Rfam assigns this 100-nucleotide sequence from Verminephrobacter sp. Larva24 to the family "Glycine riboswitch aptamer". The organism belongs to Verminephrobacter, within Bacteria.
RNA sequence: AUCCCCGGGUCAGGAGAGAGUGCCAGGCCCCCGGGGCCAGCGCACCGCCGAAGGCGCAGGCAGCGGCCGAACGCUCAGGCAAAAGGACUGGCAAGCGCCC
Dot-bracket structure: .....(..(((((......((((..................)))).(((((..(((...((....))....))))).))).......)))))..).....